[Rfam]
RNA sequence: AAAGAAAACAAUAGCAUAAGUGUUGAAACAUGCUUUAACAAUUUGAGCUUGCUACAGCAACAAAGUCUAACCUAUUCUGGUGCUCUCCUCUAUGAGACAAGCCGUUAUAUAGACUUAGACAGU
Numbered sequence: 001a002a003a004g005a006a007a008a009c010a011a012u013a014g015c016a017u018a019a020g021u022g023u024u025g026a027a028a029c030a031u032g033c034u035u036u037a038a039c040a041a042u043u044u045g046a047g048c049u050u051g052c053u054a055c056a057g058c059a060a061c062a063a064a065g066u067c068u069a070a071c072c073u074a075u076u077c078u079g080g081u082g083c084u085c086u087c088c089u090c091u092a093u094g095a096g097a098c099a100a101g102c103c104g105u106u107a108u109a110u111a112g113a114c115u116u117a118g119a120c121a122g123u
Stems, first nucleotide, its partner, number of pairs: 009047001012040001018035005063116007073109003078104004084097004

The record is a 123-nucleotide RNA sequence from Myotis lucifugus, which matches "Small nucleolar RNA SNORA28" in Rfam.
Rfam links the family to the GO terms nucleolus and RNA processing.
It scores 88 bits against the family's covariance model.
Rfam's curators write: ACA28 is a member of the H/ACA class of snoRNA that guide the sites of modification of uridines to pseudouridines.
A reference for the family is Huttenhofer et al. (2001), "RNomics: an experimental approach that identifies 201 candidates for novel, small, non-messenger RNAs in mouse", EMBO J.